[Rfam]
A member of the RNA family "small nucleolar RNA snoR117" from Corchorus olitorius, 82 nucleotides long. Gene Ontology terms of the family: nucleolus and RNA processing. A reference for the family is Chen and Wu (2009), "Mining small RNA sequencing data: a new approach to identify small nucleolar RNAs in Arabidopsis", Nucleic Acids Res.

RNA sequence: UGCCGGUGAUGCACACAAAAUUGUCCGUACCAUCUGAGAUUUUCUCUUUGAUGUAUACUCUAAAGUCUAUUUUCUGAGGCAU
Numbered sequence: 001u002g003c004c005g006g007u008g009a010u011g012c013a014c015a016c017a018a019a020a021u022u023g024u025c026c027g028u029a030c031c032a033u034c035u036g037a038g039a040u041u042u043u044c045u046c047u048u049u050g051a052u053g054u055a056u057a058c059u060c061u062a063a064a065g066u067c068u069a070u071u072u073u074c075u076g077a078g079g080c081a082u
Stems, first nucleotide, its partner, number of pairs: 001081004